[Rfam]
RNA sequence: ACUUACCGAUUUAAAUGCCUGCCUAAAAACCGGGCACGGCACCAACGCCACUACCAGCGGCUCUCCUAAUGU
Numbered sequence: 001a002c003u004u005a006c007c008g009a010u011u012u013a014a015a016u017g018c019c020u021g022c023c024u025a026a027a028a029a030c031c032g033g034g035c036a037c038g039g040c041a042c043c044a045a046c047g048c049c050a051c052u053a054c055c056a057g058c059g060g061c062u063c064u065c066c067u068a069a070u071g072u
Stems, first nucleotide, its partner, number of pairs: 007071002017040003020036002023033002052068002056064001
Rfam assigns this 72-nucleotide sequence from Stutzerimonas nosocomialis to the family "Pseudomonas sRNA P10". A reference for the family is Livny et al. (2006), "Identification of 17 Pseudomonas aeruginosa sRNAs and prediction of sRNA-encoding genes in 10 diverse pathogens using the bioinformatic tool sRNAPredict2", Nucleic Acids Res. The match comes from Rfam's covariance-model search (45 bits).